[Rfam]
RNA sequence: GCCCUGGUGGUGUAGUGGCUAUCAUGCGGGCCUGUCGAGCCCGCGACUCGGGUUCAAUUCCCGGCCAGGGCG
Numbered sequence: 001g002c003c004c005u006g007g008u009g010g011u012g013u014a015g016u017g018g019c020u021a022u023c024a025u026g027c028g029g030g031c032c033u034g035u036c037g038a039g040c041c042c043g044c045g046a047c048u049c050g051g052g053u054u055c056a057a058u059u060c061c062c063g064g065c066c067a068g069g070g071c072g
Stems, first nucleotide, its partner, number of pairs: 001071007010025003027043005048064005
Dot-bracket structure: (((((((..(((..........))).(((((.......)))))....(((((.......)))))))))))).
About this RNA: Rfam assigns this 72-nucleotide RNA from Methanothermus fervidus to the family "tRNA". The sequence is in the family's curated seed alignment.